Background
A member of the RNA family "Selenocysteine transfer RNA" from Campylobacter hominis, 95 nucleotides long. Taxonomically the source falls in Campylobacter hominis (Bacteria, Epsilonproteobacteria, Campylobacterales, Campylobacteraceae).

RNA sequence: UGGAGAGUAAGUCGUGCCGGUGGCGAUCGCGGACUUCAAAUCCGAUGAAAGGGCGGUUGACCGUUCUUUGGGGGGUUCGAUUCCCUCACUCUCUC
Numbered sequence: 001u002g003g004a005g006a007g008u009a010a011g012u013c014g015u016g017c018c019g020g021u022g023g024c025g026a027u028c029g030c031g032g033a034c035u036u037c038a039a040a041u042c043c044g045a046u047g048a049a050a051g052g053g054c055g056g057u058u059g060a061c062c063g064u065u066c067u068u069u070g071g072g073g074g075g076u077u078c079g080a081u082u083c084c085c086u087c088a089c090u091c092u093c094u095c
Base pairs, nucleotide, nucleotide: 002094003093004092005091006090007089008088011027012026013025014024015023017022030044031043032042033041048069049068050067051066052065053064054063072086073085074084075083